This 153-nucleotide RNA from Myxacorys almedinensis belongs to the Rfam family "c-di-AMP riboswitch aptamer (ydaO/yuaA leader)".
[Rfam]
RNA sequence: ACGGAGAAUAGUCCGGAUUCUCGUUCAAGCGGAGGAACCAAUUUUUCUGGGGCGAAUUUUAGGCGCUUGGGUCGAGUUAGACUUGAACACGCCUGAGAGAGACACCUUCCAGUCUUAGCCCGUCAGCUAACUCCGUCGGCAAUGGGAGGAGUG
Numbered sequence: 001a002c003g004g005a006g007a008a009u010a011g012u013c014c015g016g017a018u019u020c021u022c023g024u025u026c027a028a029g030c031g032g033a034g035g036a037a038c039c040a041a042u043u044u045u046u047c048u049g050g051g052g053c054g055a056a057u058u059u060u061a062g063g064c065g066c067u068u069g070g071g072u073c074g075a076g077u078u079a080g081a082c083u084u085g086a087a088c089a090c091g092c093c094u095g096a097g098a099g100a101g102a103c104a105c106c107u108u109c110c111a112g113u114c115u116u117a118g119c120c121c122g123u124c125a126g127c128u129a130a131c132u133c134c135g136u137c138g139g140c141a142a143u144g145g146g147a148g149g150a151g152u153g
Base pairs, nucleotide, nucleotide: 013139014138018028019027029136030135031134032133033132034131039049040048050121051120052119058097059096060095061094062093063092064091065090100115101114102113103112
From the family's description: This family represents a conserved RNA structure found upstream of the ydaO and yuaA genes in Bacillus subtilis and related genes in other bacteria.